Antizyme RNA frameshifting stimulation element: a 56-nucleotide sequence. This family represents a structural element which is found in antizyme mRNA and is known to promote frameshifting. The literature on the family includes a 2004 paper in J Mol Biol by Ivanov et al., "Identification of a new antizyme mRNA +1 frameshifting stimulatory pseudoknot in a subset of diverse invertebrates and its apparent absence in intermediate species". The family's consensus secondary structure is taken from published work.
[Rfam]
RNA sequence: UGAUGCCCCUCUCCCACUAACGAAGAUCCCGGGUGGGCGAGGGACGGGCAGGGAUC
Numbered sequence: 001u002g003a004u005g006c007c008c009c010u011c012u013c014c015c016a017c018u019a020a021c022g023a024a025g026a027u028c029c030c031g032g033g034u035g036g037g038c039g040a041g042g043g044a045c046g047g048g049c050a051g052g053g054a055u056c
Stems, first nucleotide, its partner, number of pairs: 007043005013037006025056006
Gene Ontology term of the family: translational frameshifting.